[Rfam]
RNA sequence: UGCUCAUCAAGAGGGGCUGAGGGACUGGCCCAAUGACGCCCGGCAACCCCUGGAGAGGGAUCUGACCCACUCCAGUACGGUGCCAAUUCCAGCGGUACACAUGGAUGUACCGGGAGAUGAGAG
Numbered sequence: 001u002g003c004u005c006a007u008c009a010a011g012a013g014g015g016g017c018u019g020a021g022g023g024a025c026u027g028g029c030c031c032a033a034u035g036a037c038g039c040c041c042g043g044c045a046a047c048c049c050c051u052g053g054a055g056a057g058g059g060a061u062c063u064g065a066c067c068c069a070c071u072c073c074a075g076u077a078c079g080g081u082g083c084c085a086a087u088u089c090c091a092g093c094g095g096u097a098c099a100c101a102u103g104g105a106u107g108u109a110c111c112g113g114g115a116g117a118u119g120a121g122a123g
Stems, first nucleotide, its partner, number of pairs: 001123001003121006013041001015040003021031003025092004042084004047080002050075006088115001093112006